[Rfam]
RNA: Yersinia sRNA 155(RyfD)
RNA sequence: UAAGGCGGUCCGGGACAGUUAACGUUUUUCCUCCUAUUAUUACUGGCAAAGUCAUCUUGAAAUUUUGAAAGAUGGCCUUAUUUAAUCUCCGGUAGCAAUUUUGACCAGUAUGUAUGGGAGGAGUUAUGCGUCUGGAUCGUCUUAC
Numbered sequence: 001u002a003a004g005g006c007g008g009u010c011c012g013g014g015a016c017a018g019u020u021a022a023c024g025u026u027u028u029u030c031c032u033c034c035u036a037u038u039a040u041u042a043c044u045g046g047c048a049a050a051g052u053c054a055u056c057u058u059g060a061a062a063u064u065u066u067g068a069a070a071g072a073u074g075g076c077c078u079u080a081u082u083u084a085a086u087c088u089c090c091g092g093u094a095g096c097a098a099u100u101u102u103g104a105c106c107a108g109u110a111u112g113u114a115u116g117g118g119a120g121g122a123g124u125u126a127u128g129c130g131u132c133u134g135g136a137u138c139g140u141c142u143u144a145c
Base pairs, nucleotide, nucleotide: 002143003142004141005140006139007138008137009136010135011134012133014132015131016130021125022124023123025046026045029042032039055070057068058067059066060065071082072081073080074079086121087120088119089118090117092115093114094113